sok antitoxin (CssrC): a 152-nucleotide sequence from Pluralibacter gergoviae. Rfam's curators write: Also identified in Shigella as CssrC. Pairs were carried over by alignment from the consensus structure, which is taken from published work. Rfam links the family to the GO term mRNA binding. A search with the family's covariance model found it, with a score of 84 bits. Taxonomically the source falls in Pluralibacter (Bacteria, Pseudomonadota, Gammaproteobacteria, Enterobacterales).
RNA sequence: GGGUGCCUGAUGCUUUCUGUCUCAGGUACGCGCUGAGCAGAAAGAGAAAAGGCCCCGAGUGAUUUUUCAAUCAACCCGAGGCCCCUCGUAUGCUAGACACAUGCAAGGUUAGCCUCUUACGCCGUCGAAAGCAAUAUCCGCUGCUGUCUAUA
Numbered sequence: 001g002g003g004u005g006c007c008u009g010a011u012g013c014u015u016u017c018u019g020u021c022u023c024a025g026g027u028a029c030g031c032g033c034u035g036a037g038c039a040g041a042a043a044g045a046g047a048a049a050a051g052g053c054c055c056c057g058a059g060u061g062a063u064u065u066u067u068c069a070a071u072c073a074a075c076c077c078g079a080g081g082c083c084c085c086u087c088g089u090a091u092g093c094u095a096g097a098c099a100c101a102u103g104c105a106a107g108g109u110u111a112g113c114c115u116c117u118u119a120c121g122c123c124g125u126c127g128a129a130a131g132c133a134a135u136a137u138c139c140g141c142u143g144c145u146g147u148c149u150a151u152a
Stems, first nucleotide, its partner, number of pairs: 001056003005053004011046001013044008022035001026031001057077001059075002061072004078116005084108003088104004120143002124139001